[Rfam]
RNA sequence: AGCCUAAACCUUUAAAAACAAAGGCAUGGUUAAAACCCAGUCGAGGAUAAAGAACCUAUCAUGUAGGAUUUAUCUUGACUGGUCGUAUCUGGAAACGGAUAUGGAGGACUUCGGUUCUC
Numbered sequence: 001a002g003c004c005u006a007a008a009c010c011u012u013u014a015a016a017a018a019c020a021a022a023g024g025c026a027u028g029g030u031u032a033a034a035a036c037c038c039a040g041u042c043g044a045g046g047a048u049a050a051a052g053a054a055c056c057u058a059u060c061a062u063g064u065a066g067g068a069u070u071u072a073u074c075u076u077g078a079c080u081g082g083u084c085g086u087a088u089c090u091g092g093a094a095a096c097g098g099a100u101a102u103g104g105a106g107g108a109c110u111u112c113g114g115u116u117c118u119c
Stems, first nucleotide, its partner, number of pairs: 001031004009024005037082010051071003055067003084103008104119006
Shown here is a 119-nucleotide sequence, a member of the family "LOOT RNA". The family's consensus secondary structure is taken from published work. By type it is a small RNA.